[Rfam]
RNA sequence: CGGUCCGCAGUUCACCUAGGCAUCGCCGCCCUCUGGGCAAGCUAAACCUGCUU
Number, nucleotide and partner (000 for none) at each position: 001c000002g016003g015004u014005c000006c000007g000008c000009a000010g000011u000012u000013c000014a004015c003016c002017u000018a000019g000020g000021c000022a000023u000024c000025g000026c000027c000028g038029c037030c036031c035032u000033c000034u000035g031036g030037g029038c028039a000040a000041g000042c000043u000044a000045a000046a000047c000048c000049u000050g000051c000052u000053u000